[Rfam]
RNA sequence: GCUUGAAUGAUGAUUCACACUUUGUCGGAUACCCCUUCACUCUCCAAUGAGUGAGAUCCUCCGUCUGACAGGC
Numbered sequence: 001g002c003u004u005g006a007a008u009g010a011u012g013a014u015u016c017a018c019a020c021u022u023u024g025u026c027g028g029a030u031a032c033c034c035c036u037u038c039a040c041u042c043u044c045c046a047a048u049g050a051g052u053g054a055g056a057u058c059c060u061c062c063g064u065c066u067g068a069c070a071g072g073c
Stems, first nucleotide, its partner, number of pairs: 001073005
Rfam assigns this 73-nucleotide sequence from Nothobranchius furzeri to the family "Small nucleolar RNA SNORD101". NCBI's taxonomy places the organism under Eukaryota, Bilateria, Euteleostomi, Euteleosteomorpha, Nothobranchius. Rfam 15.1 lists 658 matches to the family in 617 species. For this family Rfam cites "Identification of 13 novel human modification guide RNAs" (Vitali et al., Nucleic Acids Res, 2003). Rfam links the family to the GO terms nucleolus and RNA processing.